[Rfam]
RNA sequence: ACACCAGAGAGGAGGUGGUUCGGCGAAUGUAUGCAUACCGGACGCGUGAGGUGACUGCGGGCUGACGCCUGCCGUCGCACUCUGUGCACUCGGCAGGCCGUCUGCCGUAAUCCCAGCAGUCACCGACCCGCGGGCUCGCCGGUACGUCCGGCCGGCCCCUCCGCAAGGAGGGACCCGAGCCCGCGGGUUUCUGCGU
Numbered sequence: 001a002c003a004c005c006a007g008a009g010a011g012g013a014g015g016u017g018g019u020u021c022g023g024c025g026a027a028u029g030u031a032u033g034c035a036u037a038c039c040g041g042a043c044g045c046g047u048g049a050g051g052u053g054a055c056u057g058c059g060g061g062c063u064g065a066c067g068c069c070u071g072c073c074g075u076c077g078c079a080c081u082c083u084g085u086g087c088a089c090u091c092g093g094c095a096g097g098c099c100g101u102c103u104g105c106c107g108u109a110a111u112c113c114c115a116g117c118a119g120u121c122a123c124c125g126a127c128c129c130g131c132g133g134g135c136u137c138g139c140c141g142g143u144a145c146g147u148c149c150g151g152c153c154g155g156c157c158c159c160u161c162c163g164c165a166a167g168g169a170g171g172g173a174c175c176c177g178a179g180c181c182c183g184c185g186g187g188u189u190u191c192u193g194c195g196u
Stems, first nucleotide, its partner, number of pairs: 015058005060106003064102003067098004072093003125189012138156006
RNA: Actinobacteria sRNA Ms_IGR-5
Organism: Streptomyces qinzhouensis